[Rfam]
RNA: Small nucleolar RNA F1/F2/snoR5a
Organism: Triticum turgidum
RNA sequence: AAAUGCCAUUUGGUAUGUGACACCUGGUCAUUUUUUUGUGAUUCUGUGUCUUGAAAUGUGGCAGAAAAUGAGGGGGGGGGGGUGGAACUUUGCGACGCUGGCUGCUCCUAAUGAGCCUCUAGUUACUAUAUAUCCGUUUACAUAA
Numbered sequence: 001a002a003a004u005g006c007c008a009u010u011u012g013g014u015a016u017g018u019g020a021c022a023c024c025u026g027g028u029c030a031u032u033u034u035u036u037u038g039u040g041a042u043u044c045u046g047u048g049u050c051u052u053g054a055a056a057u058g059u060g061g062c063a064g065a066a067a068a069u070g071a072g073g074g075g076g077g078g079g080g081g082g083u084g085g086a087a088c089u090u091u092g093c094g095a096c097g098c099u100g101g102c103u104g105c106u107c108c109u110a111a112u113g114a115g116c117c118u119c120u121a122g123u124u125a126c127u128a129u130a131u132a133u134c135c136g137u138u139u140a141c142a143u144a145a
Stems, first nucleotide, its partner, number of pairs: 004063006019050005026043005081138005097123005104116003